[Rfam]
The family of this 93-nucleotide sequence from Chrysochloris asiatica is "Small nucleolar RNA SNORD116". Rfam 15.1 lists 3,260 matches to the family in 170 species. Gene Ontology terms of the family: RNA processing and nucleolus.

RNA sequence: GGAUUGAUGAUAGUGUCUAUAUAAACAUUCCUUGGAAAAGCUGAACAAAAGUAGUGAAAAGUCAACCACCAUCUAACUCAUGAACUGAGGUCA
Number, nucleotide and partner (000 for none) at each position: 001g000002g092003a091004u090005u089006g000007a000008u000009g000010a000011u000012a000013g000014u000015g000016u000017c000018u000019a000020u000021a000022u000023a000024a000025a000026c056027a055028u054029u053030c000031c000032u048033u047034g046035g000036a000037a000038a000039a000040g000041c000042u000043g000044a000045a000046c034047a033048a032049a000050a000051g000052u000053a029054g028055u027056g026057a000058a000059a000060a000061g000062u000063c000064a000065a000066c000067c000068a000069c000070c000071a000072u000073c000074u000075a000076a000077c000078u000079c000080a000081u000082g000083a000084a000085c000086u000087g000088a000089g005090g004091u003092c002093a000
The match comes from Rfam's covariance-model search (63 bits). The literature on the family includes a 2000 paper in Proc Natl Acad Sci U S A by Cavaille et al., "Identification of brain-specific and imprinted small nucleolar RNA genes exhibiting an unusual genomic organization".